[Rfam]
RNA sequence: AGUCAUAUGCUUGUCUAAAGGAUUAAGCCAUGCAUGUCUAAGUAUAGUCCUCACGGACGAAACUGCAGACGGCUCAUUACAACGGUCGCUGGUCACAGGACACGCGGCGGGGCAACUCGCUGUGGAUAACCGCAUUAAAUCGGGGCUAAUACAUACAAAACCGAGUGGACGACUGGGCAACUGGAAGUUCGCGCGAUGGAUUAACCCUUCGACUGACCUCUUGGUUUGGUUGGAACCGAUUCAUGUUGUUAGUCGGCGCUUCGGCGCCGAUUUGUUCUAGACGCGACUGCCCUAUCAGCUUGACGGCAAGGUCUUGGCUUGCCGUGGCUGUAACGGGUAACGGAGAAUUAGGGUUCGAUUCCGGAGAGGACGCCUGAGAAACGGCGUCCACACCUACGGGUGGCAGCAGGCACGUAAAUUUCCCAAUGUCAAUACGAUGAGGGAGCGACAAUAAAUACUUUUAGUCCUGGUCGCAAGAUCAGGACUCAACAAGAUUAAGCACAAAGUAAAUAAAUUAGCCAGUAUUAUUGGAGGGCAAGUCUGGUGCCAGCAGCCGCGGUAAUUCCAGCUCCAACAGUAUAUACUAAAGUUGUUG
Numbered sequence: 001a002g003u004c005a006u007a008u009g010c011u012u013g014u015c016u017a018a019a020g021g022a023u024u025a026a027g028c029c030a031u032g033c034a035u036g037u038c039u040a041a042g043u044a045u046a047g048u049c050c051u052c053a054c055g056g057a058c059g060a061a062a063c064u065g066c067a068g069a070c071g072g073c074u075c076a077u078u079a080c081a082a083c084g085g086u087c088g089c090u091g092g093u094c095a096c097a098g099g100a101c102a103c104g105c106g107g108c109g110g111g112g113c114a115a116c117u118c119g120c121u122g123u124g125g126a127u128a129a130c131c132g133c134a135u136u137a138a139a140u141c142g143g144g145g146c147u148a149a150u151a152c153a154u155a156c157a158a159a160a161c162c163g164a165g166u167g168g169a170c171g172a173c174u175g176g177g178c179a180a181c182u183g184g185a186a187g188u189u190c191g192c193g194c195g196a197u198g199g200a201u202u203a204a205c206c207c208u209u210c211g212a213c214u215g216a217c218c219u220c221u222u223g224g225u226u227u228g229g230u231u232g233g234a235a236c237c238g239a240u241u242c243a244u245g246u247u248g249u250u251a252g253u254c255g256g257c258g259c260u261u262c263g264g265c266g267c268c269g270a271u272u273u274g275u276u277c278u279a280g281a282c283g284c285g286a287c288u289g290c291c292c293u294a295u296c297a298g299c300u301u302g303a304c305g306g307c308a309a310g311g312u313c314u315u316g317g318c319u320u321g322c323c324g325u326g327g328c329u330g331u332a333a334c335g336g337g338u339a340a341c342g343g344a345g346a347a348u349u350a351g352g353g354u355u356c357g358a359u360u361c362c363g364g365a366g367a368g369g370a371c372g373c374c375u376g377a378g379a380a381a382c383g384g385c386g387u388c389c390a391c392a393c394c395u396a397c398g399g400g401u402g403g404c405a406g407c408a409g410g411c412a413c414g415u416a417a418a419u420u421u422c423c424c425a426a427u428g429u430c431a432a433u434a435c436g437a438u439g440a441g442g443g444a445g446c447g448a449c450a451a452u453a454a455a456u457a458c459u460u461u462u463a464g465u466c467c468u469g470g471u472c473g474c475a476a477g478a479u480c481a482g483g484a485c486u487c488a489a490c491a492a493g494a495u496u497a498a499g500c501a502c503a504a505a506g507u508a509a510a511u512a513a514a515u516u517a518g519c520c521a522g523u524a525u526u527a528u529u530g531g532a533g534g535g536c537a538a539g540u541c542u543g544g545u546g547c548c549a550g551c552a553g554c555c556g557c558g559g560u561a562a563u564u565c566c567a568g569c570u571c572c573a574a575c576a577g578u579a580u581a582u583a584c585u586a587a588a589g590u591u592g593u594u595g
Base pairs, nucleotide, nucleotide: 001585002584003583005582006581007580008579009578010577011576014453016451020446021413027411028410029409031408032407033406036066037065041064042063043062048057049056073366074365075364083289084288085287088284089283092282093281098277099276100275101274121155122154123153124152130145131144133142162184164182165181166180170176189243191241194238203231204230205229206228211220212219253270254269255268256267257266258265259264291337292336293335298328299327300326303325304324305323306322307321308320309319310318341363342362343361344360345356346355347354348353368389369388370387371386372385373384391402392401393400394399419444421443422442423441427439428438429437430436459492460491462488463486464485465484466483467482468481469480470479471478472477499519500518501516503515528574529573530572531571532570533569541568542567543566544565550557551556
RNA: Eukaryotic small subunit ribosomal RNA, nucleotides 22 to 616